[Rfam]
RNA sequence: GAUAAACGAUGUGAGAAUCAUCGUCCCCGUAAGCCUAAGGUUUCCUGGCCUAUGUUCGUCAGGUCAGGGUGAGUCGGGCCCUAAGCCGAGGCCGAGAGGCGUAGGCGAUGGAAAACAGGUCAACAUUCCUGUACCACAGUGGCGACGUUAUCAGCGAAGGGGGGGGGCAGAAGGGUAGGCACCGCCGGGUCCCUGGAAUACCCGGUCCAAGCGUGUAGGCGGGUCUCGUUGGCAAAUCCGCGAGGCCGUUAUCGUCGAGACGUGAUGGGGAGGCCGUAAGGCCGCAAACGGGCCGAUCCCAUGCUGACAAGAAAAGCCUCGUAGCGAGUCGUCAUUGUGUCCGUACCGCAAACCGACACAGGUAGGUGGGUGGAAUACACUCAGGGGCG
Numbered sequence: 001g002a003u004a005a006a007c008g009a010u011g012u013g014a015g016a017a018u019c020a021u022c023g024u025c026c027c028c029g030u031a032a033g034c035c036u037a038a039g040g041u042u043u044c045c046u047g048g049c050c051u052a053u054g055u056u057c058g059u060c061a062g063g064u065c066a067g068g069g070u071g072a073g074u075c076g077g078g079c080c081c082u083a084a085g086c087c088g089a090g091g092c093c094g095a096g097a098g099g100c101g102u103a104g105g106c107g108a109u110g111g112a113a114a115a116c117a118g119g120u121c122a123a124c125a126u127u128c129c130u131g132u133a134c135c136a137c138a139g140u141g142g143c144g145a146c147g148u149u150a151u152c153a154g155c156g157a158a159g160g161g162g163g164g165g166g167g168c169a170g171a172a173g174g175g176u177a178g179g180c181a182c183c184g185c186c187g188g189g190u191c192c193c194u195g196g197a198a199u200a201c202c203c204g205g206u207c208c209a210a211g212c213g214u215g216u217a218g219g220c221g222g223g224u225c226u227c228g229u230u231g232g233c234a235a236a237u238c239c240g241c242g243a244g245g246c247c248g249u250u251a252u253c254g255u256c257g258a259g260a261c262g263u264g265a266u267g268g269g270g271a272g273g274c275c276g277u278a279a280g281g282c283c284g285c286a287a288a289c290g291g292g293c294c295g296a297u298c299c300c301a302u303g304c305u306g307a308c309a310a311g312a313a314a315a316g317c318c319u320c321g322u323a324g325c326g327a328g329u330c331g332u333c334a335u336u337g338u339g340u341c342c343g344u345a346c347c348g349c350a351a352a353c354c355g356a357c358a359c360a361g362g363u364a365g366g367u368g369g370g371u372g373g374a375a376u377a378c379a380c381u382c383a384g385g386g387g388c389g
Base pairs, nucleotide, nucleotide: 006024007023008022009021010020011019025387026386027385028384033367034366035365036364039347040346044068045067046066047065048064049063053061054060075343076342077341078340080111081110085106086105087104089102091100092099093098115132116131117130118129119128135339136338137337138336139335140334141333142332143331144330145329154325155324159320160319161318162317168306169305170304173300174299175298178294179293180292182290184206185205186204187203188202189201207268208267211263212262213261214260218256219255220254223246224245225244226243227242228241229240231239232238270285272283273282274281275280353362354361369381370380371379372378

This 389-nucleotide part of an RNA from Candidatus Nitrospira inopinata belongs to the Rfam family "Bacterial large subunit ribosomal RNA". It scores 2866 bits against the family's covariance model. A reference for the family is Yusupov et al. (2001), "Crystal structure of the ribosome at 5.5 A resolution", Science. The family has 102 seed sequences and 51,934 matches in Rfam 15.1.